[Rfam]
RNA sequence: CACCCGGCGAGGCAAGCGCCACAAGGGGGGCGCGGCUGGACUGGAACAGGGGCUGGCCACGCGUGAACCGGGGAAGCGAAGGGGCCGGAUGUCGGGGGACAUCCGGCCCCGUUUUU
Numbered sequence: 001c002a003c004c005c006g007g008c009g010a011g012g013c014a015a016g017c018g019c020c021a022c023a024a025g026g027g028g029g030g031c032g033c034g035g036c037u038g039g040a041c042u043g044g045a046a047c048a049g050g051g052g053c054u055g056g057c058c059a060c061g062c063g064u065g066a067a068c069c070g071g072g073g074a075a076g077c078g079a080a081g082g083g084g085c086c087g088g089a090u091g092u093c094g095g096g097g098g099a100c101a102u103c104c105g106g107c108c109c110c111g112u113u114u115u116u
Stems, first nucleotide, its partner, number of pairs: 003072005011064001012062002016033005034058006041050002081110013

The record is a 116-nucleotide RNA sequence from Luteimonas sp. JM171, which matches "Xanthomonadaceae sRNA asX1" in Rfam. It is annotated as a small RNA. The base pairs follow the family's consensus structure, which was predicted with CMfinder. For this family Rfam cites "Genome-wide transcriptome analysis of the plant pathogen Xanthomonas identifies sRNAs with putative virulence functions" (Schmidtke et al., Nucleic Acids Res, 2011). NCBI's taxonomy places the organism under Bacteria, Pseudomonadati, Pseudomonadota, Lysobacterales, Luteimonas. A search with the family's covariance model found it, with a score of 74 bits.